[Rfam]
RNA sequence: UAAUCGCGUCGCGACUGGCGCAAGGUGGAUGACCACCGGGGAGCGACACAGCAGUUCAGGACUUCGGGUCGUUCGCCUGGGCCCCGGUC
Numbered sequence: 001u002a003a004u005c006g007c008g009u010c011g012c013g014a015c016u017g018g019c020g021c022a023a024g025g026u027g028g029a030u031g032a033c034c035a036c037c038g039g040g041g042a043g044c045g046a047c048a049c050a051g052c053a054g055u056u057c058a059g060g061a062c063u064u065c066g067g068g069u070c071g072u073u074c075g076c077c078u079g080g081g082c083c084c085c086g087g088u089c
Stems, first nucleotide, its partner, number of pairs: 004051001006049001008047005015040002017077004025036004066084005
This 89-nucleotide sequence from Luteimicrobium subarcticum belongs to the Rfam family "ZMP/ZTP riboswitch aptamer (pfl RNA motif)".